[Rfam]
RNA sequence: AUCAGGGGCCCUGGAAAGGGCCUCCGGCUCGUUCUCCAGCUUACCGCCCGAGACCAGCCGUGUUGUAAAGCCCACAAGGCGGUUCGACGAGAUUGCGACUGGAACGAAGUUGUCCUGAGGGACGGGGAAGCGUUUUAAGCAUCAACCAGCAACCCAGUUGCAGGCCUAGUCGCCCAACGGCAUCCACGAGCCGGUAAGCGUCCAAGCUGCAAUCGCUGCUCGGUCCGCUC
Numbered sequence: 001a002u003c004a005g006g007g008g009c010c011c012u013g014g015a016a017a018g019g020g021c022c023u024c025c026g027g028c029u030c031g032u033u034c035u036c037c038a039g040c041u042u043a044c045c046g047c048c049c050g051a052g053a054c055c056a057g058c059c060g061u062g063u064u065g066u067a068a069a070g071c072c073c074a075c076a077a078g079g080c081g082g083u084u085c086g087a088c089g090a091g092a093u094u095g096c097g098a099c100u101g102g103a104a105c106g107a108a109g110u111u112g113u114c115c116u117g118a119g120g121g122a123c124g125g126g127g128a129a130g131c132g133u134u135u136u137a138a139g140c141a142u143c144a145a146c147c148a149g150c151a152a153c154c155c156a157g158u159u160g161c162a163g164g165c166c167u168a169g170u171c172g173c174c175c176a177a178c179g180g181c182a183u184c185c186a187c188g189a190g191c192c193g194g195u196a197a198g199c200g201u202c203c204a205a206g207c208u209g210c211a212a213u214c215g216c217u218g219c220u221c222g223g224u225c226c227g228c229u230c
Base pairs, nucleotide, nucleotide: 005024006023007022008021009020010019011018012017028057029056031054035052037050039048041046060155064149070080071079072078083137086134087133088132089131115127116126171200172199173198176195178193179192180191181190205220206219207218209216210215
RNA: sRNA regulator of biofilms A